Rfam assigns this 115-nucleotide RNA from Metallococcus carri to the family "SAM (S-adenosyl methionine) riboswitch aptamer". The base pairs follow the family's consensus structure, which is taken from published work. Taxonomically the source falls in Metallococcus (Bacteria, Actinomycetota, Micrococcales, Dermacoccaceae).
RNA sequence: GGUCAAGAGCGCCAGCGUCAAGCCCCGGCUCGCUGGCCGGCAACCCUCCUACCGCGGUGGGGUGCCCCGGGUGAGGACAAGGCCGGCGCGCACCUCGCGUCGGCAAGCGCGGGGU
Numbered sequence: 001g002g003u004c005a006a007g008a009g010c011g012c013c014a015g016c017g018u019c020a021a022g023c024c025c026c027g028g029c030u031c032g033c034u035g036g037c038c039g040g041c042a043a044c045c046c047u048c049c050u051a052c053c054g055c056g057g058u059g060g061g062g063u064g065c066c067c068c069g070g071g072u073g074a075g076g077a078c079a080a081g082g083c084c085g086g087c088g089c090g091c092a093c094c095u096c097g098c099g100u101c102g103g104c105a106a107g108c109g110c111g112g113g114g115u
Stems, first nucleotide, its partner, number of pairs: 002078003009038001011037006021030002039066003044062003048057002082104009